[Rfam]
RNA: DUF3800-XI RNA
Organism: Phascolarctobacterium sp. CAG:266
RNA sequence: UGGCUUGGGUGAAAACUCUGGGGCCACCGUAGACGGGGACAUUUCCC
Numbered sequence: 001u002g003g004c005u006u007g008g009g010u011g012a013a014a015a016c017u018c019u020g021g022g023g024c025c026a027c028c029g030u031a032g033a034c035g036g037g038g039a040c041a042u043u044u045c046c047c
Base pairs, nucleotide, nucleotide: 001026002025003024004023005022006021007018008017009016010015